Record summary
The family of this 108-nucleotide RNA from Salinimicrobium catena is "6S-Flavo RNA".
[Rfam]
RNA sequence: ACUCAACACCAAUUCUUUAAAAAGGGUGAGUUUAAGUUGUAAAAGCGGGCCGUCUUUGAACGGAUUCUUGAUCAGCUUGUUAGCCCUAAACGUGAUUUUAAAGAGUUU
Numbered sequence: 001a002c003u004c005a006a007c008a009c010c011a012a013u014u015c016u017u018u019a020a021a022a023a024g025g026g027u028g029a030g031u032u033u034a035a036g037u038u039g040u041a042a043a044a045g046c047g048g049g050c051c052g053u054c055u056u057u058g059a060a061c062g063g064a065u066u067c068u069u070g071a072u073c074a075g076c077u078u079g080u081u082a083g084c085c086c087u088a089a090a091c092g093u094g095a096u097u098u099u100a101a102a103g104a105g106u107u108u
Stems, first nucleotide, its partner, number of pairs: 023087005034078005043069003050063004
Taxonomically the source falls in Salinimicrobium (Bacteria, Pseudomonadati, Flavobacteriia, Flavobacteriales). Pairs were carried over by alignment from the consensus structure, which is taken from published work. The match comes from Rfam's covariance-model search (106 bits).